[Rfam]
RNA sequence: GGAGGUAGGUCCUCCGCAAUCUGUGUUCAGGCACUGGUUGCAAAUGACUCUAAGCUGCUAUAGUCAAAAGCUAUGGUGUAGAGUAAGGCAGAGGCGCCUACU
Number, nucleotide and partner (000 for none) at each position: 001g015002g014003a013004g012005g011006u000007a000008g000009g000010u000011c005012c004013u003014c002015c001016g041017c040018a039019a038020u037021c036022u000023g034024u033025g032026u031027u000028c000029a000030g000031g026032c025033a024034c023035u000036g021037g020038u019039u018040g017041c016042a000043a000044a000045u000046g000047a000048c083049u082050c081051u080052a000053a000054g079055c000056u000057g077058c076059u075060a000061u073062a072063g071064u070065c000066a000067a000068a000069a000070g064071c063072u062073a061074u000075g059076g058077u057078g000079u054080a051081g050082a049083g048084u000085a000086a000087g000088g000089c000090a000091g000092a102093g101094g000095c000096g000097c000098c000099u000100a000101c093102u092

Rfam assigns this 102-nucleotide RNA from Trichonephila clavata to the family "Group II catalytic intron D1-D4-2". For this family Rfam cites "Control of branch-site choice by a group II intron" (Chu et al., EMBO J, 2001). Group II introns are found in rRNA, tRNA and mRNA of organelles in fungi, plants and protists, and also in mRNA in bacteria. Rfam 15.1 lists 1,231 matches to the family in 625 species. The base pairs follow the family's consensus structure.